Source information:
The record is a 46-nucleotide RNA sequence from Kolteria novifilia, which matches "Acido-Lenti-1 RNA" in Rfam. The organism belongs to Kolteria, within Bacteria. The family's RNA type in Rfam is small RNA. The family's consensus secondary structure is taken from published work.

RNA sequence: CCUGGCACUCACGUGCCAGGCUAUACUCGCCCGCCGCUUCGCGGCC
Numbered sequence: 001c002c003u004g005g006c007a008c009u010c011a012c013g014u015g016c017c018a019g020g021c022u023a024u025a026c027u028c029g030c031c032c033g034c035c036g037c038u039u040c041g042c043g044g045c046c
Base pairs, nucleotide, nucleotide: 001020002019003018004017005016006015007014008013033045034044035043036042037041